[Rfam]
RNA sequence: CGAAAUCUUCGGGGCGGGGUGGAAUUCCCCACCGGCGGUGAAGGGCCUCCAGGUCCGCAGCCCGCGAGCCGAAAGGCUGAUCCGGUGCGAUUCCGGAGCCGACUGUGAAGCGGACGGAGCGAGUCGUCCGCCAAGUCAGGAUGGAAGAAGAUGGCG
Numbered sequence: 001c002g003a004a005a006u007c008u009u010c011g012g013g014g015c016g017g018g019g020u021g022g023a024a025u026u027c028c029c030c031a032c033c034g035g036c037g038g039u040g041a042a043g044g045g046c047c048u049c050c051a052g053g054u055c056c057g058c059a060g061c062c063c064g065c066g067a068g069c070c071g072a073a074a075g076g077c078u079g080a081u082c083c084g085g086u087g088c089g090a091u092u093c094c095g096g097a098g099c100c101g102a103c104u105g106u107g108a109a110g111c112g113g114a115c116g117g118a119g120c121g122a123g124u125c126g127u128c129c130g131c132c133a134a135g136u137c138a139g140g141a142u143g144g145a146a147g148a149a150g151a152u153g154g155c156g
Stems, first nucleotide, its partner, number of pairs: 005152006017029003033101002035065004060099002068077003081097005103139003